[Rfam]
RNA sequence: ACACGUUCUCAGGGCGGGGUGUAAUUCCCCACCGGCGGUAAUGCUGCGCAACGCAGCUAGCCCGCGAGCGCCCGGUACGGCACCAGCCGCCCGGGGACGAGCAGAUCCGGUGUGAUUCCGGAGCCGACGGUAUAGUCCGGAUGAAGAGAGAGCGGGA
Numbered sequence: 001a002c003a004c005g006u007u008c009u010c011a012g013g014g015c016g017g018g019g020u021g022u023a024a025u026u027c028c029c030c031a032c033c034g035g036c037g038g039u040a041a042u043g044c045u046g047c048g049c050a051a052c053g054c055a056g057c058u059a060g061c062c063c064g065c066g067a068g069c070g071c072c073c074g075g076u077a078c079g080g081c082a083c084c085a086g087c088c089g090c091c092c093g094g095g096g097a098c099g100a101g102c103a104g105a106u107c108c109g110g111u112g113u114g115a116u117u118c119c120g121g122a123g124c125c126g127a128c129g130g131u132a133u134a135g136u137c138c139g140g141a142u143g144a145a146g147a148g149a150g151a152g153c154g155g156g157a
Stems, first nucleotide, its partner, number of pairs: 004154007017029003031136002033126002035065004060124002068102002106122005128139003
The family of this 157-nucleotide sequence from Pseudomonas fulva is "FMN riboswitch aptamer (RFN element)". It scores 109 bits against the family's covariance model. The source organism's lineage runs through Bacteria, Pseudomonadota, Gammaproteobacteria, Pseudomonas and Pseudomonas fulva.